Shown here is a 69-nucleotide RNA from Flavobacterium cellulosilyticum, a member of the family "DUF805 RNA".

RNA sequence: UUUAAAUGGAAACCAGCUACCAUUCAAAAAAACGGGGCUAAACCGAAAAGCCAUAUGAGUAGGAACUAA
Numbered sequence: 001u002u003u004a005a006a007u008g009g010a011a012a013c014c015a016g017c018u019a020c021c022a023u024u025c026a027a028a029a030a031a032a033c034g035g036g037g038c039u040a041a042a043c044c045g046a047a048a049a050g051c052c053a054u055a056u057g058a059g060u061a062g063g064a065a066c067u068a069a
Base pairs, nucleotide, nucleotide: 006023007022008021009020036052037051038050043063044062

It scores 73 bits against the family's covariance model. Clan: DUF805 clan.